Rfam assigns this 54-nucleotide RNA from Rubellimicrobium roseum to the family "terC RNA". Pairs were carried over by alignment from the consensus structure, which is taken from published work. It scores 58 bits against the family's covariance model.
[Rfam]
RNA sequence: UAUGGGGUCCGGGCCCCUCUGGCGGUGAUGCCACCGCGAUGUCGGACUCCUCCG
Dot-bracket structure: .....(((((((.........((((((....))))))....)))))))......